A member of the RNA family "Betaproteobacteria-1 RNA", 124 nucleotides long. The sequence is in the family's curated seed alignment. Rfam classes the family as a small RNA.
RNA sequence: CACUGCGCUGGUUGGACUUUGUUUAACUGCAGCGGCGCAGGGUGAGUCCCCUACUGUUGGAUCAGGUGCUGAAACAGGGAAAGGGUGGCGAAGUUAGCGCCCUUGCAUCGAACGGCUGACGGGU
Numbered sequence: 001c002a003c004u005g006c007g008c009u010g011g012u013u014g015g016a017c018u019u020u021g022u023u024u025a026a027c028u029g030c031a032g033c034g035g036c037g038c039a040g041g042g043u044g045a046g047u048c049c050c051c052u053a054c055u056g057u058u059g060g061a062u063c064a065g066g067u068g069c070u071g072a073a074a075c076a077g078g079g080a081a082a083g084g085g086u087g088g089c090g091a092a093g094u095u096a097g098c099g100c101c102c103u104u105g106c107a108u109c110g111a112a113c114g115g116c117u118g119a120c121g122g123g124u
Stems, first nucleotide, its partner, number of pairs: 001042001003040008029057004049079004066108004081104006093120006